[Rfam]
RNA: Mammalian CPEB3 ribozyme
Organism: Crocodylus porosus
Nucleotides: 077
Stems, first nucleotide, its partner, number of pairs: 013046001015044003021077002024074002027071001028040003049066007
Number, partner (000 for none) and nucleotide at each position: 001000a002000g003000c004000c005000g006000c007000a008000a009000g010000u011000u012000a013046g014000a015044g016043g017042c018000c019000a020000a021077a022076g023000a024074a025073g026000c027071a028040g029039u030038a031000u032000u033000u034000a035000c036000u037000g038030u039029g040028c041000a042017g043016c044015u045000a046013c047000g048000u049066c050065a051064g052063a053062u054061u055060c056000c057000a058000a059000u060055g061054a062053a063052u064051u065050u066049g067000c068000a069000a070000a071027u072000u073025c074024u075000g076022c077021u